Rfam assigns this 82-nucleotide sequence from Pochonia chlamydosporia to the family "tRNA".
[Rfam]
RNA sequence: GGCGUGGUGGCGGAGUGGUCUAACGCGCAAGACUCGAAAUCUUGUUCCUUCGGGAGCGCCCGUUCGAAUCGGGCCCACGUCG
Numbered sequence: 001g002g003c004g005u006g007g008u009g010g011c012g013g014a015g016u017g018g019u020c021u022a023a024c025g026c027g028c029a030a031g032a033c034u035c036g037a038a039a040u041c042u043u044g045u046u047c048c049u050u051c052g053g054g055a056g057c058g059c060c061c062g063u064u065c066g067a068a069u070c071g072g073g074c075c076c077a078c079g080u081c082g
Stems, first nucleotide, its partner, number of pairs: 001081007010026003028044005058074005

Rfam's curators write: Transfer RNA (tRNA) molecules are approximately 80 nucleotides in length. NCBI's taxonomy places the organism under Eukaryota, Ascomycota, saccharomyceta, leotiomyceta, Pochonia chlamydosporia.